Small nucleolar RNA SNORA81: a 184-nucleotide sequence from Neogobius melanostomus. For this family Rfam cites "A novel experimental approach for systematic identification of box H/ACA snoRNAs from eukaryotes" (Gu et al., Nucleic Acids Res, 2005). The source organism's lineage runs through Eukaryota, Clupeocephala, Ctenosquamata, Neogobiini and Neogobius. The family's RNA type in Rfam is H/ACA-box small nucleolar RNA.
RNA sequence: ACCCUUCUCUUCAAGCACCCUGCUAAAACUGCAAGAGUCAGGCCUUUAUGGCUGAGCUCAUGUGGCUGUGUAAGCAUGGGUACACCGGGGAAGGAGAGCAACACACAGUAUCUAAAAAUGAGGCUCGGAAGGACCGCUUUCUUAAUGUCCAGUGUCCUAUGUCUCAAGAUUCUGUGUUACAACU
Numbered sequence: 001a002c003c004c005u006u007c008u009c010u011u012c013a014a015g016c017a018c019c020c021u022g023c024u025a026a027a028a029c030u031g032c033a034a035g036a037g038u039c040a041g042g043c044c045u046u047u048a049u050g051g052c053u054g055a056g057c058u059c060a061u062g063u064g065g066c067u068g069u070g071u072a073a074g075c076a077u078g079g080g081u082a083c084a085c086c087g088g089g090g091a092a093g094g095a096g097a098g099c100a101a102c103a104c105a106c107a108g109u110a111u112c113u114a115a116a117a118a119u120g121a122g123g124c125u126c127g128g129a130a131g132g133a134c135c136g137c138u139u140u141c142u143u144a145a146u147g148u149c150c151a152g153u154g155u156c157c158u159a160u161g162u163c164u165c166a167a168g169a170u171u172c173u174g175u176g177u178u179a180c181a182a183c184u
Stems, first nucleotide, its partner, number of pairs: 018080002021076004028069002031066001035059001037057002041053004103177006110170001128153001131150003